[Rfam]
RNA sequence: CCUGGUGAUUACCACUAGCGAGGUAUAGAGUUCCUACGUGUAACUACUUAUUGUAGGAACUUCAUACCGUGCUCUUGGGUUUGCCAAU
Numbered sequence: 001c002c003u004g005g006u007g008a009u010u011a012c013c014a015c016u017a018g019c020g021a022g023g024u025a026u027a028g029a030g031u032u033c034c035u036a037c038g039u040g041u042a043a044c045u046a047c048u049u050a051u052u053g054u055a056g057g058a059a060c061u062u063c064a065u066a067c068c069g070u071g072c073u074c075u076u077g078g079g080u081u082u083g084c085c086a087a088u
Stems, first nucleotide, its partner, number of pairs: 012078003017073004022068005028062010

This 88-nucleotide RNA from Leptidea sinapis belongs to the Rfam family "mir-276 microRNA precursor family". The source organism's lineage runs through Eukaryota, Pterygota, Glossata, Dismorphiinae and Leptidea. The family has 42 seed sequences and 200 matches in Rfam 15.1.